RNA sequence: UCUCUGGAGAGUGCCUUUAAGUAGAGGCCACCCAAGAAGCAAACAGUUUACAUAACUGCGAAACUUUCUGGUUAAUGGACAGGGA
Numbered sequence: 001u002c003u004c005u006g007g008a009g010a011g012u013g014c015c016u017u018u019a020a021g022u023a024g025a026g027g028c029c030a031c032c033c034a035a036g037a038a039g040c041a042a043a044c045a046g047u048u049u050a051c052a053u054a055a056c057u058g059c060g061a062a063a064c065u066u067u068c069u070g071g072u073u074a075a076u077g078g079a080c081a082g083g084g085a
Stems, first nucleotide, its partner, number of pairs: 001085006013028004030072003034067001037066003044058005
Glycine riboswitch aptamer: an 85-nucleotide RNA sequence from Pontibacillus litoralis. Rfam links the family to the GO term glycine biosynthetic process. NCBI's taxonomy places the organism under Bacteria, Bacillati, Bacillaceae, Pontibacillus, Pontibacillus litoralis.